[Rfam]
RNA sequence: CACGACCGACGCGGGGGCCCGGCGAACCGGGCUGAGAUAGCGGCUGGCACGGCCGCUGACCGCAUGAACCUGACCGGGUAAUGCCGGCGUAGGGAGAGAUCGAGUCGUGAACGAA
Numbered sequence: 001c002a003c004g005a006c007c008g009a010c011g012c013g014g015g016g017g018c019c020c021g022g023c024g025a026a027c028c029g030g031g032c033u034g035a036g037a038u039a040g041c042g043g044c045u046g047g048c049a050c051g052g053c054c055g056c057u058g059a060c061c062g063c064a065u066g067a068a069c070c071u072g073a074c075c076g077g078g079u080a081a082u083g084c085c086g087g088c089g090u091a092g093g094g095a096g097a098g099a100u101c102g103a104g105u106c107g108u109g110a111a112c113g114a115a
Stems, first nucleotide, its partner, number of pairs: 007102003011063004017032005039057008069093004074087004
TPP riboswitch aptamer (THI element): a 115-nucleotide RNA sequence from Actinomadura sp. WAC 06369. The source organism's lineage runs through Bacteria, Actinomycetota, Actinomycetes, Thermomonosporaceae and Actinomadura.